[Rfam]
The record is a 125-nucleotide RNA from Brevibacillus sp. SYP-B805, which matches "c-di-AMP riboswitch aptamer (ydaO/yuaA leader)" in Rfam. It scores 100 bits against the family's covariance model. Lineage of the source: Bacteria > Bacillati > Bacilli > Paenibacillaceae > Brevibacillus.
RNA sequence: UAUUUAAUUACGCUGAAUCGCAAGAACGGGGGAACCACACAUUGGGGUGAAUCGCAGAACCUGCGUAGGGCAAUUCCACUGCCCGAAUCCGUCAGCUAACCUCGUAAGCGUAGCUGGAAAGGGGG
Numbered sequence: 001u002a003u004u005u006a007a008u009u010a011c012g013c014u015g016a017a018u019c020g021c022a023a024g025a026a027c028g029g030g031g032g033a034a035c036c037a038c039a040c041a042u043u044g045g046g047g048u049g050a051a052u053c054g055c056a057g058a059a060c061c062u063g064c065g066u067a068g069g070g071c072a073a074u075u076c077c078a079c080u081g082c083c084c085g086a087a088u089c090c091g092u093c094a095g096c097u098a099a100c101c102u103c104g105u106a107a108g109c110g111u112a113g114c115u116g117g118a119a120a121g122g123g124g125g
Base pairs, nucleotide, nucleotide: 011110012109013108014107018025019024026105027104028103029102030101031100036044037043045090046089047088053065054064055063056062068084069083070082071081